A member of the RNA family "SAM-I/IV (S-adenosyl methionine) riboswitch aptamer", 103 nucleotides long. It is one of the family's seed sequences. The literature on the family includes a 2014 paper in PNAS by Trausch et al., "Structural basis for diversity in the SAM clan of riboswitches". The base pairs follow the family's consensus structure, which is taken from published work. Clan: SAM clan.

[Rfam]
Nucleotides: 103
Stems, first nucleotide, its partner, number of pairs: 007075004015029001017028004030057003035053003038049002042098004078087003
Number, partner (000 for none) and nucleotide at each position: 001000a002000c003000c004000a005000c006000g007075c008074a009073u010072u011000a012000a013000g014000a015029g016000a017028g018027g019026a020025c021000u022000g023000a024000u025020g026019u027018c028017c029015c030057g031056c032055c033000a034000a035053c036052c037051u038049g039048c040000g041000u042098g043097u044096u045095c046000c047000a048039g049038c050000a051037a052036g053035g054000u055032g056031g057030u058000u059000g060000c061000c062000u063000u064000a065000a066000u067000u068000a069000g070000g071000c072010g073009a074008u075007g076000a077000g078087a079086c080085c081000u082000a083000a084000g085080g086079g087078u088000a089000a090000c091000c092000a093000a094000c095045g096044g097043g098042u099000c100000a101000u102000c103000a